[Rfam]
Nucleotides: 136
Stems, first nucleotide, its partner, number of pairs: 009085004013026005027057008038046001058081007104134004109130005115125002
Number, partner (000 for none) and nucleotide at each position: 001000c002000a003000a004000a005000a006000g007000g008000a009085c010084a011083u012082c013026u014025g015024c016023u017022g018000c019000g020000a021000c022017u023016g024015g025014c026013a027057c028056a029055g030054c031053u032052g033051u034050g035000g036000a037000u038046g039000g040000g041000g042000u043000u044000u045000u046038c047000u048000g049000a050034c051033a052032c053031a054030g055029c056028u057027g058081c059080g060079g061078a062077a063076u064075c065000g066000c067000u068000a069000u070000c071000a072000a073000g074000a075064g076063a077062u078061u079060c080059c081058g082012g083011a084010u085009g086000c087000a088000u089000g090000a091000u092000u093000u094000u095000u096000a097000a098000a099000a100000c101000a102000c103000g104134a105133g106132g107131c108000u109130g110129c111128u112127a113126a114000u115125g116124a117000u118000c119000g120000u121000u122000a123000u124116u125115c126113u127112u128111g129110g130109u131107g132106c133105c134104u135000c136000a
The family of this 136-nucleotide RNA sequence from Sinocyclocheilus anshuiensis is "U11 spliceosomal RNA". The family's consensus secondary structure is taken from published work. Clan: U1 clan. Rfam classes the family as a spliceosomal small nuclear RNA.